This 288-nucleotide RNA from Clonorchis sinensis belongs to the Rfam family "Metazoan signal recognition particle RNA". Rfam classes the family as a non-coding RNA gene. NCBI's taxonomy places the organism under Eukaryota, Trematoda, Opisthorchiida, Opisthorchiata, Clonorchis.

[Rfam]
RNA sequence: ACCCGCACAUAUUUCCGUGUUUUGAUGACUUUGAAUUUCGGGGGUCGCGAAAUUUCGCGGGGUCGGGAGUUCUGGUGCUAACUCGUGCAUGUUGAUCGGGCAUCCACGCUAAGCACGGCGCCGAUAUGGAUGGUCAGUCGGAGGGUAGGCUGUCCAGGUCGCCCAAGGAGGGGCGAACCGGCUCAGGGGGAAAACCCAGCAGGCAAAAGUCCCCGCGUGAUGCAGUAGCGGGAUAGCGGGCUGUGAAUGACAGUGACAUCUCCAGGCUCAUAUGCGCGUGAUUUGCAC
Numbered sequence: 001a002c003c004c005g006c007a008c009a010u011a012u013u014u015c016c017g018u019g020u021u022u023u024g025a026u027g028a029c030u031u032u033g034a035a036u037u038u039c040g041g042g043g044g045u046c047g048c049g050a051a052a053u054u055u056c057g058c059g060g061g062g063u064c065g066g067g068a069g070u071u072c073u074g075g076u077g078c079u080a081a082c083u084c085g086u087g088c089a090u091g092u093u094g095a096u097c098g099g100g101c102a103u104c105c106a107c108g109c110u111a112a113g114c115a116c117g118g119c120g121c122c123g124a125u126a127u128g129g130a131u132g133g134u135c136a137g138u139c140g141g142a143g144g145g146u147a148g149g150c151u152g153u154c155c156a157g158g159u160c161g162c163c164c165a166a167g168g169a170g171g172g173g174c175g176a177a178c179c180g181g182c183u184c185a186g187g188g189g190g191a192a193a194a195c196c197c198a199g200c201a202g203g204c205a206a207a208a209g210u211c212c213c214c215g216c217g218u219g220a221u222g223c224a225g226u227a228g229c230g231g232g233a234u235a236g237c238g239g240g241c242u243g244u245g246a247a248u249g250a251c252a253g254u255g256a257c258a259u260c261u262c263c264a265g266g267c268u269c270a271u272a273u274g275c276g277c278g279u280g281a282u283u284u285g286c287a288c
Stems, first nucleotide, its partner, number of pairs: 001012001021035003044288002047286004052282003056278003060269005066263002074260004079256001081254003085251002088249003092245001097243003101239001103236001104232002107230005113223003118218004122161004127156009137146003162168002170213005181204003188197003
Overview
The family has 91 seed sequences and 383,523 matches in Rfam 15.1. Its family is annotated with SRP-dependent cotranslational protein targeting to membrane, signal sequence recognition and signal recognition particle, endoplasmic reticulum targeting in the Gene Ontology. Pairs were carried over by alignment from the consensus structure, which is taken from published work. A search with the family's covariance model found it, with a score of 125 bits. The literature on the family includes a 2002 paper in Curr Opin Struct Biol by Wild et al., "Towards the structure of the mammalian signal recognition particle".